[Rfam]
RNA sequence: CCGUUCUUGUGUUAUUUGUUGAGUCAGUUCGCCAGAUUCAACGAUUGUCAAAAAUAACGCAUAUUGUAGUUGACAGUUUCACUCCAUAAUGUUGGGCUCUUAACUCCAAAGCUAUGACAUUACUAAAUGCUGCCUAGACUA
Numbered sequence: 001c002c003g004u005u006c007u008u009g010u011g012u013u014a015u016u017u018g019u020u021g022a023g024u025c026a027g028u029u030c031g032c033c034a035g036a037u038u039c040a041a042c043g044a045u046u047g048u049c050a051a052a053a054a055u056a057a058c059g060c061a062u063a064u065u066g067u068a069g070u071u072g073a074c075a076g077u078u079u080c081a082c083u084c085c086a087u088a089a090u091g092u093u094g095g096g097c098u099c100u101u102a103a104c105u106c107c108a109a110a111g112c113u114a115u116g117a118c119a120u121u122a123c124u125a126a127a128u129g130c131u132g133c134c135u136a137g138a139c140u141a
Stems, first nucleotide, its partner, number of pairs: 002059004007054001010050002016044007088121005095113004
A member of the RNA family "Small nucleolar RNA psi18S-1377" from Scaptodrosophila lebanonensis, 141 nucleotides long.
The match comes from Rfam's covariance-model search (95 bits).
The base pairs follow the family's consensus structure, which was predicted with RNAalifold.
Rfam describes the family as follows. psi18S-1377 is a member of the H/ACA class of snoRNA. This family is responsible for guiding the modification of uridines 1377 and 1279 to pseudouridine in Drosophila 18S rRNA.
The family's RNA type in Rfam is H/ACA-box small nucleolar RNA.